A member of the RNA family "Sense overlapping transcript RNA 0042 (sot)" from uncultured archaeon A07HR60, 166 nucleotides long. It is associated with IS1341-type transposase (tnpB) genes, at the 3'-end in H. salinarum NRC-1. The family's consensus secondary structure was predicted with RNAfold. The family's RNA type in Rfam is small RNA. A reference for the family is Gomes-Filho et al. (2015), "Sense overlapping transcripts in IS1341-type transposase genes are functional non-coding RNAs in archaea", RNA Biol.
RNA sequence: CGGUAACUCCGAGUCCUGCACAGGAUAGGAGUAACGGCUGUUUGGCACAGCCAUCGGUACGUCUGUUCGACAAAUCAACGGGGAGAAUCGCCCCACAAGAACAGGUUGUCCCGUAGACCACAAUAUCCCAAUGGCGGUCGGGAAUCCCACGGCUUCAGCCGUGGGA
Numbered sequence: 001c002g003g004u005a006a007c008u009c010c011g012a013g014u015c016c017u018g019c020a021c022a023g024g025a026u027a028g029g030a031g032u033a034a035c036g037g038c039u040g041u042u043u044g045g046c047a048c049a050g051c052c053a054u055c056g057g058u059a060c061g062u063c064u065g066u067u068c069g070a071c072a073a074a075u076c077a078a079c080g081g082g083g084a085g086a087a088u089c090g091c092c093c094c095a096c097a098a099g100a101a102c103a104g105g106u107u108g109u110c111c112c113g114u115a116g117a118c119c120a121c122a123a124u125a126u127c128c129c130a131a132u133g134g135c136g137g138u139c140g141g142g143a144a145u146c147c148c149a150c151g152g153c154u155u156c157a158g159c160c161g162u163g164g165g166a
Stems, first nucleotide, its partner, number of pairs: 003035002007031004013026005036052005055113003059109002062105007081094003126143004131138002145166009